This 53-nucleotide RNA sequence from Ilex paraguariensis belongs to the Rfam family "Plastid-atpF group II-D1 intron". Taxonomically the source falls in Ilex (Eukaryota, eudicotyledons, Pentapetalae, asterids). The family has 49 seed sequences and 1,372 matches in Rfam 15.1. The base pairs follow the family's consensus structure, which was predicted with LocARNA. From the family's description: Plastid atpF is a non-coding RNA (ncRNA) recognised in plastids. It has been reported in the intron group II-D1 region of ATP synthase (atpF) genes.
RNA sequence: GAAUAUUUUAUCGAUAUAGAACACUCAUAUCGAUAAAAUAAUUUGAAACACUU
Numbered sequence: 001g002a003a004u005a006u007u008u009u010a011u012c013g014a015u016a017u018a019g020a021a022c023a024c025u026c027a028u029a030u031c032g033a034u035a036a037a038a039u040a041a042u043u044u045g046a047a048a049c050a051c052u053u
Stems, first nucleotide, its partner, number of pairs: 011033007